[Rfam]
Nucleotides: 126
Base pairs, nucleotide, nucleotide: 003038004037005036006035007034008033009032015030016029017028018027019026051081052080053079054078055077057075058074059073060072061071062070063069092121096117097116098115099114100113101112102111103110104109
Number, partner (000 for none) and nucleotide at each position: 001000a002000a003038c004037a005036c006035c007034u008033u009032u010000u011000a012000a013000u014000a015030c016029u017028g018027u019026c020000c021000a022000g023000a024000g025000a026019g027018g028017c029016a030015g031000c032009a033008a034007g035006g036005g037004u038003g039000c040000a041000g042000a043000a044000c045000u046000g047000a048000a049000a050000g051081c052080u053079u054078g055077u056000u057075u058074c059073a060072g061071c062070a063069u064000g065000a066000c067000a068000u069063g070062u071061g072060c073059u074058g075057a076000u077055a078054c079053a080052a081051g082000a083000c084000u085000u086000u087000g088000g089000u090000a091000u092121a093000c094000u095000c096117a097116c098115c099114c100113u101112g102111u103110g104109c105000u106000c107000c108000c109104g110103c111102a112101c113100a114099g115098g116097g117096u118000u119000u120000u121092u122000u123000u124000u125000a126000u
The record is a 126-nucleotide sequence from Metabacillus lacus, which matches "PyrR binding site" in Rfam. Rfam describes the family as follows. This family represents the PyrR binding site and terminator structure. Rfam classes the family as a cis-regulatory element. Gene Ontology terms of the family: pyrimidine nucleobase transport and pyrimidine nucleobase biosynthetic process. Pairs were carried over by alignment from the consensus structure, which is taken from published work.